[Rfam]
The family of this 101-nucleotide RNA sequence from Exiguobacterium chiriqhucha is "TPP riboswitch aptamer (THI element)". Taxonomically the source falls in Exiguobacterium chiriqhucha (Bacteria, Bacillota, Caryophanales, Exiguobacterium). The match comes from Rfam's covariance-model search (66 bits).
RNA sequence: GGACUACACUAGGGGUGCUUCGGCUGAGAUGUGAGCAUGGCUCCAAUCCCUUAUGACUCGAUCCGGGUAAUACCGGCGUGAGGAAGUGUGGCACUUUUUCU
Number, nucleotide and partner (000 for none) at each position: 001g000002g000003a000004c000005u000006a089007c088008a087009c086010u085011a051012g050013g049014g048015g000016u045017g024018c023019u000020u000021c000022g000023g018024c017025u000026g000027a000028g000029a000030u000031g044032u000033g043034a042035g041036c040037a000038u000039g000040g036041c035042u034043c033044c031045a016046a000047u000048c014049c013050c012051u011052u000053a000054u000055g000056a000057c082058u081059c080060g079061a000062u000063c076064c075065g074066g073067g000068u000069a000070a000071u000072a000073c066074c065075g064076g063077c000078g000079u060080g059081a058082g057083g000084a000085a010086g009087u008088g007089u006090g000091g000092c000093a000094c000095u000096u000097u000098u000099u000100c000101u000